The family of this 126-nucleotide RNA sequence is "SAM-I/IV (S-adenosyl methionine) riboswitch aptamer". Rfam links the family to the GO terms S-adenosylmethionine metabolic process and regulation of gene expression. Rfam's curators put it in the seed alignment.
RNA sequence: AUAGUACAUCAGGAGUGGUUUCAGUAUUGAAACCCGCCAACCGAACCCAGAUAAAUCAAGGUUACGGUGGUUUGAUCCUUAAACGGUAGAUGUGCCCAGGAAGAUGGGAAACAUGAUUAGCCGCCU
Numbered sequence: 001a002u003a004g005u006a007c008a009u010c011a012g013g014a015g016u017g018g019u020u021u022c023a024g025u026a027u028u029g030a031a032a033c034c035c036g037c038c039a040a041c042c043g044a045a046c047c048c049a050g051a052u053a054a055a056u057c058a059a060g061g062u063u064a065c066g067g068u069g070g071u072u073u074g075a076u077c078c079u080u081a082a083a084c085g086g087u088a089g090a091u092g093u094g095c096c097c098a099g100g101a102a103g104a105u106g107g108g109a110a111a112c113a114u115g116a117u118u119a120g121c122c123g124c125c126u
Stems, first nucleotide, its partner, number of pairs: 006093005015035001017034007036071003041067003044063003095108004